[Rfam]
RNA sequence: UUUUGAUAAAGGCAAACUCAUCGAAAGAUGAAGACGCAAAGUCAAGAGUCUACGGUGUAACCCUCUUUUCGUUACACUAGGAUCGUCCGACUGCCAAG
Numbered sequence: 001u002u003u004u005g006a007u008a009a010a011g012g013c014a015a016a017c018u019c020a021u022c023g024a025a026a027g028a029u030g031a032a033g034a035c036g037c038a039a040a041g042u043c044a045a046g047a048g049u050c051u052a053c054g055g056u057g058u059a060a061c062c063c064u065c066u067u068u069u070c071g072u073u074a075c076a077c078u079a080g081g082a083u084c085g086u087c088c089g090a091c092u093g094c095c096a097a098g
Stems, first nucleotide, its partner, number of pairs: 012037002018031005040092004046087002048083003055077007
RNA: c-di-GMP-I riboswitch aptamer